[Rfam]
RNA sequence: GGCCGAUGACUGGAGAUCUAUUGUCCGUACCAUCUGAUUUUCUGAUGCAUCGAAUUUGCCAAAUUUUCCGAGGCCC
Numbered sequence: 001g002g003c004c005g006a007u008g009a010c011u012g013g014a015g016a017u018c019u020a021u022u023g024u025c026c027g028u029a030c031c032a033u034c035u036g037a038u039u040u041u042c043u044g045a046u047g048c049a050u051c052g053a054a055u056u057u058g059c060c061a062a063a064u065u066u067u068c069c070g071a072g073g074c075c076c
Stems, first nucleotide, its partner, number of pairs: 001075004
small nucleolar RNA snoR117: a 76-nucleotide RNA sequence from Panicum virgatum. The match comes from Rfam's covariance-model search (42 bits).